Record summary: A member of the RNA family "ssnA RNA", 48 nucleotides long. Pairs were carried over by alignment from the consensus structure, which is taken from published work.

RNA sequence: ACAAUUCAAGCUGUAACGAAGUGCUGUGCGCACGGGCUGGUGUUCAUU
Numbered sequence: 001a002c003a004a005u006u007c008a009a010g011c012u013g014u015a016a017c018g019a020a021g022u023g024c025u026g027u028g029c030g031c032a033c034g035g036g037c038u039g040g041u042g043u044u045c046a047u048u
Stems, first nucleotide, its partner, number of pairs: 009038004021033004

The sequence is in the family's curated seed alignment. The family's RNA type in Rfam is cis-regulatory element.